[Rfam]
RNA: mir-184 microRNA precursor family
RNA sequence: CGUCUCUCGCCUCCUUGUCAUUCUCGUGUCCGGUUGUGCAUUCAACUUACUGGACGGAGAACUGAUAAGGGCGCGUGUGAUC
Numbered sequence: 001c002g003u004c005u006c007u008c009g010c011c012u013c014c015u016u017g018u019c020a021u022u023c024u025c026g027u028g029u030c031c032g033g034u035u036g037u038g039c040a041u042u043c044a045a046c047u048u049a050c051u052g053g054a055c056g057g058a059g060a061a062c063u064g065a066u067a068a069g070g071g072c073g074c075g076u077g078u079g080a081u082c
Stems, first nucleotide, its partner, number of pairs: 012071009021061005029053002